[Rfam]
RNA: small nucleolar RNA snoR17
RNA sequence: UUUUUUAUGAUGAAAAAAGAAAUACUGACAAAAUAAUUUGAUGAGUUUUUGCUAUUUCACCAAGAUCACUGAAAAA
Dot-bracket structure: .((((...................................................................))))